[Rfam]
RNA sequence: UAGUAGGUUGGUGCAAAACUAAUUGCAGUUUUUGCUAUGAAAAGUAAUGGCAAAAACUGCAAUUAGUUUUGCACCAACCUAAUA
Numbered sequence: 001u002a003g004u005a006g007g008u009u010g011g012u013g014c015a016a017a018a019c020u021a022a023u024u025g026c027a028g029u030u031u032u033u034g035c036u037a038u039g040a041a042a043a044g045u046a047a048u049g050g051c052a053a054a055a056a057c058u059g060c061a062a063u064u065a066g067u068u069u070u071g072c073a074c075c076a077a078c079c080u081a082a083u084a
Base pairs, nucleotide, nucleotide: 001084002083004081005080006079007078008077009076010075011074012073013072014071015070016069017068018067019066020065021064022063023062024061025060026059027058028057029056030055031054032053033052034051035050036049037048038047040045

A member of the RNA family "mir-548 microRNA precursor family" from Cebus imitator, 84 nucleotides long. Taxonomically the source falls in Cebus (Eukaryota, Bilateria, Craniata, Dipnotetrapodomorpha). For this family Rfam cites "Deep sequencing of the small RNA transcriptome of normal and malignant human B cells identifies hundreds of novel microRNAs" (Jima et al., Blood, 2010).